RNA: Streptococcus sRNA SSRC34
Organism: Streptococcus urinalis
RNA sequence: UGAAAACGUUUUAAAAUAGUUAUGUUCUUGAAUUUCGUUAAAUUGAAAAAGAAUUGCCAAUUUUUUAUUGGAAGGAGAUUAUUCUUCUUCAGUUCAGCGAAAAAUAUAAUAUAGGAGGAAGAACAAGA
Numbered sequence: 001u002g003a004a005a006a007c008g009u010u011u012u013a014a015a016a017u018a019g020u021u022a023u024g025u026u027c028u029u030g031a032a033u034u035u036c037g038u039u040a041a042a043u044u045g046a047a048a049a050a051g052a053a054u055u056g057c058c059a060a061u062u063u064u065u066u067a068u069u070g071g072a073a074g075g076a077g078a079u080u081a082u083u084c085u086u087c088u089u090c091a092g093u094u095c096a097g098c099g100a101a102a103a104a105u106a107u108a109a110u111a112u113a114g115g116a117g118g119a120a121g122a123a124c125a126a127g128a
Stems, first nucleotide, its partner, number of pairs: 006025004012019001026122004033102007041094007049086006057071004